[Rfam]
RNA sequence: UUUUUAUACAGAAGCGGCGAGAGACUAGGCUCCCUGACCCGCUGGCAACCUUCGACCGCACGAAAGGUGCCACUUCCUACCCCCGGCCAUGCUGCCGGCGGGACAUAUAAAGU
Numbered sequence: 001u002u003u004u005u006a007u008a009c010a011g012a013a014g015c016g017g018c019g020a021g022a023g024a025c026u027a028g029g030c031u032c033c034c035u036g037a038c039c040c041g042c043u044g045g046c047a048a049c050c051u052u053c054g055a056c057c058g059c060a061c062g063a064a065a066g067g068u069g070c071c072a073c074u075u076c077c078u079a080c081c082c083c084c085g086g087c088c089a090u091g092c093u094g095c096c097g098g099c100g101g102g103a104c105a106u107a108u109a110a111a112g113u
Stems, first nucleotide, its partner, number of pairs: 002112007013043005021032003026079004044071004049067002051064004075105001080102003084098001
RNA: SAM riboswitch aptamer (S box leader)